[Rfam]
Nucleotides: 046
Stems, first nucleotide, its partner, number of pairs: 006028005016038001
Number, partner (000 for none) and nucleotide at each position: 001000a002000a003000c004000c005000a006028c007027g008026u009025g010024g011000u012000u013000c014000g015000c016038a017000a018000u019000c020000c021000a022000u023000c024010c025009c026008a027007c028006g029000c030000a031000a032000a033000a034000a035000a036000a037000c038016u039000a040000g041000g042000a043000g044000c045000c046000u

PreQ1 (pre queuosine) riboswitch aptamer: a 46-nucleotide sequence from Snodgrassella alvi. Lineage of the source: Bacteria > Pseudomonadati > Pseudomonadota > Neisseriaceae > Snodgrassella. On this family, see Reader et al., J Biol Chem 2004: "Identification of four genes necessary for biosynthesis of the modified nucleoside queuosine". About the family: This family is a bacterial riboswitch that binds to the metabolite preQ1, an intermediate in the biosynthesis of the modified nucleoside queuosine from GTP. One example of this riboswitch is located in the leader of the Bacillus subtilis ykvJKLM (queCDEF) operon which encodes four genes necessary for queuosine production. PreQ1 binding to the riboswitch aptamer is thought to induce premature transcription termination within the leader to down-regulate expression of these genes. Pairs were carried over by alignment from the consensus structure. The family has 43 seed sequences and 873 matches in Rfam 15.1.